[Rfam]
RNA sequence: CUUGCCGCCGAACGGUGGUGGCCAUGAGGUGCUGGGGAGCGCCGGUGACUGGUCAUCAACGGGACAGCCUCAUGGUCAAGGGAACGUGAGAGUCCACUCGGCGAAGGAG
Numbered sequence: 001c002u003u004g005c006c007g008c009c010g011a012a013c014g015g016u017g018g019u020g021g022c023c024a025u026g027a028g029g030u031g032c033u034g035g036g037g038a039g040c041g042c043c044g045g046u047g048a049c050u051g052g053u054c055a056u057c058a059a060c061g062g063g064a065c066a067g068c069c070u071c072a073u074g075g076u077c078a079a080g081g082g083a084a085c086g087u088g089a090g091a092g093u094c095c096a097c098u099c100g101g102c103g104a105a106g107g108a109g
Stems, first nucleotide, its partner, number of pairs: 006103006013061002016058001018056007028043002031040003063094003071088004